[Rfam]
Background: A member of the RNA family "Proteobacterial sRNA psRNA2" from Mycoavidus cysteinexigens, 207 nucleotides long. On this family, see Gvakharia et al., FEMS Microbiol Lett 2010: "Computational prediction and transcriptional analysis of sRNAs in Nitrosomonas europaea". It is annotated as a small RNA. The organism belongs to Mycoavidus, within Bacteria.
RNA sequence: GGGUUAUUCCUACGCGCUUACGCGCUGGUUUAAUAAAGAUUCGCACCUCUAUCAAACCGGAUAACCCCACCAUUUGGCAAUGGCCUUACUGUACGAUCAAGUCGGAACUAAUACAAUUAAAAUCAUCAAUGACAUUGAGCAGCCGGAUGCUUCUUCCGUCUGAGAGUUGGUCUUGCAUAAAAUCCAUUGACCACACCUCAUUAGUUU
Dot-bracket structure: (((((((.((...((((....)))).(((((.(((.((........)).))).)))))))))))))).((.....(((...((.((....((.((((...))))..)).(((..(..............)...)))....))))....))).................((...((..(((......)))..))...)).....))..